RNA sequence: ACAACAUUCAGACCGUCGGUCUACCCAGUAAUUUUACCGGCUCGGUGGAAGAUCUUCCCAUAGUCGA
Numbered sequence: 001a002c003a004a005c006a007u008u009c010a011g012a013c014c015g016u017c018g019g020u021c022u023a024c025c026c027a028g029u030a031a032u033u034u035u036a037c038c039g040g041c042u043c044g045g046u047g048g049a050a051g052a053u054c055u056u057c058c059c060a061u062a063g064u065c066g067a
Stems, first nucleotide, its partner, number of pairs: 004064002011057002015053003020049006027042003
A member of the RNA family "mir-2774 microRNA precursor family" from Bombyx mori, 67 nucleotides long. A reference for the family is Liu et al. (2010), "MicroRNAs of Bombyx mori identified by Solexa sequencing", BMC Genomics. The organism belongs to Bombyx, within Eukaryota.